[Rfam]
RNA sequence: UAACUAUAUAGGCAAACCUAUCGAAAGGUAGGGACGCAAAGCCAUGGGUCUAACAAUAUUAAUUCAUGACUGCCAGGUUGCAUUU
Numbered sequence: 001u002a003a004c005u006a007u008a009u010a011g012g013c014a015a016a017c018c019u020a021u022c023g024a025a026a027g028g029u030a031g032g033g034a035c036g037c038a039a040a041g042c043c044a045u046g047g048g049u050c051u052a053a054c055a056a057u058a059u060u061a062a063u064u065c066a067u068g069a070c071u072g073c074c075a076g077g078u079u080g081c082a083u084u085u
Stems, first nucleotide, its partner, number of pairs: 012037002017032006040079004045075003048070003055064003
c-di-GMP-I riboswitch aptamer: an 85-nucleotide RNA sequence from Pelosinus sp. UFO1. The family is grouped with related families in Rfam's "c-di-GMP_I riboswitch clan". It scores 78 bits against the family's covariance model. The base pairs follow the family's consensus structure, which is taken from published work. Rfam links the family to the GO term cyclic-di-GMP binding.